[Rfam]
RNA sequence: CAUCCUCGAUCUGCUGGGGCGCGAUAAAGUGGAUGUGGCUGUCGAUGCCGCCCGCCGUCAGGAUGCGCCCCUCGCCGGCGAUCGCCUCGGUGCCGGGGCCGAUGAUGAUAUCGACGCCCGGUUGCGUAUCGGGGUUGCCGGCCUUGCCGAUCUUGUGGAUGCGCCCGUCGCGCAGGCCGACGUCGGCCUUGUAGAUGCCGGUGUGGUCUAUGAUCAGCGCGUUGGUGAUGACGGUAUCAACCGCGCCGCCCGCACGGGUGACUUGGCUUUGGCCCAUGCCGUCGCGGAUG
Dot-bracket structure: (((.(.(((.((((.((((((.(.......((.((.(..(....)..)))))....(.(.......).).).))))((..(...(....(.(((.((((.(((...(.........)...)))))...))..)))..).)...)..))...)).))))....(.(((..(..(((((........((.(((........((......)).....))).))..(.(....(...((.........))...)....).)..).))))..).))))........))).).)))
Numbered sequence: 001c002a003u004c005c006u007c008g009a010u011c012u013g014c015u016g017g018g019g020c021g022c023g024a025u026a027a028a029g030u031g032g033a034u035g036u037g038g039c040u041g042u043c044g045a046u047g048c049c050g051c052c053c054g055c056c057g058u059c060a061g062g063a064u065g066c067g068c069c070c071c072u073c074g075c076c077g078g079c080g081a082u083c084g085c086c087u088c089g090g091u092g093c094c095g096g097g098g099c100c101g102a103u104g105a106u107g108a109u110a111u112c113g114a115c116g117c118c119c120g121g122u123u124g125c126g127u128a129u130c131g132g133g134g135u136u137g138c139c140g141g142c143c144u145u146g147c148c149g150a151u152c153u154u155g156u157g158g159a160u161g162c163g164c165c166c167g168u169c170g171c172g173c174a175g176g177c178c179g180a181c182g183u184c185g186g187c188c189u190u191g192u193a194g195a196u197g198c199c200g201g202u203g204u205g206g207u208c209u210a211u212g213a214u215c216a217g218c219g220c221g222u223u224g225g226u227g228a229u230g231a232c233g234g235u236a237u238c239a240a241c242c243g244c245g246c247c248g249c250c251c252g253c254a255c256g257g258g259u260g261a262c263u264u265g266g267c268u269u270u271g272g273c274c275c276a277u278g279c280c281g282u283c284g285c286g287g288a289u290g
Stems, first nucleotide, its partner, number of pairs: 001290003005286001007284003011158004016153002018076004023071001031052002034050002037048001040045001057069001059067001077148002081144001085140001090138001092135003096130002098125002101123003107117001163273001165272003170268001173265004177260001186220002189217003200209002223257001225255001230250001234246002